Background
The record is an 84-nucleotide RNA sequence from Clostridioides difficile, which matches "skipping-rope RNA" in Rfam. Rfam's curators put it in the seed alignment. By type it is a small RNA.
[Rfam]
RNA sequence: UAGAUUUGAGGUUGGAAAAGGCACCCAAUACGCUACUAUGGAGUAGUUAAUAGAGAUGCAGGAUACGCCGCCCUGCCAAAUCUA
Numbered sequence: 001u002a003g004a005u006u007u008g009a010g011g012u013u014g015g016a017a018a019a020g021g022c023a024c025c026c027a028a029u030a031c032g033c034u035a036c037u038a039u040g041g042a043g044u045a046g047u048u049a050a051u052a053g054a055g056a057u058g059c060a061g062g063a064u065a066c067g068c069c070g071c072c073c074u075g076c077c078a079a080a081u082c083u084a
Stems, first nucleotide, its partner, number of pairs: 001084008011029005020069003031053001032047006058076005
Dot-bracket structure: ((((((((..(((((....[[[..))))).(((((((....)))))).....)....(((((....]]]..)))))))))))))